[Rfam]
The family of this 88-nucleotide RNA sequence from Molossus molossus is "mir-204 microRNA precursor family". Gene Ontology terms of the family: miRNA-mediated post-transcriptional gene silencing and RISC complex. A search with the family's covariance model found it, with a score of 99 bits.
RNA sequence: CUGUGACUGGUGGGCUUCCCUUUGUCAUCCUUUGCCUGGGGCUCUGAGUGGGGCAGGGACAGCAAAGGGAUGUUCAGUUGUCAUCUCU
Numbered sequence: 001c002u003g004u005g006a007c008u009g010g011u012g013g014g015c016u017u018c019c020c021u022u023u024g025u026c027a028u029c030c031u032u033u034g035c036c037u038g039g040g041g042c043u044c045u046g047a048g049u050g051g052g053g054c055a056g057g058g059a060c061a062g063c064a065a066a067g068g069g070a071u072g073u074u075c076a077g078u079u080g081u082c083a084u085c086u087c088u
Stems, first nucleotide, its partner, number of pairs: 017070006024063002028059005034054004